Shown here is a 144-nucleotide RNA sequence from Fidelibacterota bacterium MT.SAG.4, a member of the family "FMN riboswitch aptamer (RFN element)". A search with the family's covariance model found it, with a score of 102 bits.

RNA sequence: UGUUACUUCCGGGGCGAGGCGGAAUUCCUCACCGGCGGUGAUUUCCGAAUAGGAAAAGCCCGCGACUCCCUCCAAAAUUUUGGGGGGACUGAGUAAGUGAAACUCUUACGCCGACGGUCAGAGUCCGGAUAGGAGGAAGUUGAA
Numbered sequence: 001u002g003u004u005a006c007u008u009c010c011g012g013g014g015c016g017a018g019g020c021g022g023a024a025u026u027c028c029u030c031a032c033c034g035g036c037g038g039u040g041a042u043u044u045c046c047g048a049a050u051a052g053g054a055a056a057a058g059c060c061c062g063c064g065a066c067u068c069c070c071u072c073c074a075a076a077a078u079u080u081u082g083g084g085g086g087g088a089c090u091g092a093g094u095a096a097g098u099g100a101a102a103c104u105c106u107u108a109c110g111c112c113g114a115c116g117g118u119c120a121g122a123g124u125c126c127g128g129a130u131a132g133g134a135g136g137a138a139g140u141u142g143a144a
Stems, first nucleotide, its partner, number of pairs: 003142001005140006017029003031124002033113002035063004058111002067088002093109005115127003
Lineage of the source: Bacteria > Pseudomonadati > Fidelibacterota. The family's consensus secondary structure is taken from published work.